[Rfam]
RNA sequence: ACGACCGCCACGGGAGAACCAGCCAAGCUGGUGCCGAAGGAGCAAACGCCCCGGAAACUCUCAGGCCGCAGGACCGUGGUGGUCGA
Numbered sequence: 001a002c003g004a005c006c007g008c009c010a011c012g013g014g015a016g017a018a019c020c021a022g023c024c025a026a027g028c029u030g031g032u033g034c035c036g037a038a039g040g041a042g043c044a045a046a047c048g049c050c051c052c053g054g055a056a057a058c059u060c061u062c063a064g065g066c067c068g069c070a071g072g073a074c075c076g077u078g079g080u081g082g083u084c085g086a
Base pairs, nucleotide, nucleotide: 006081007080008079009078010077011076012075013074019031020030021029022028033066034065035064036062037061040060041059042058047053048052
RNA: Glycine riboswitch aptamer
Organism: Marinibacterium profundimaris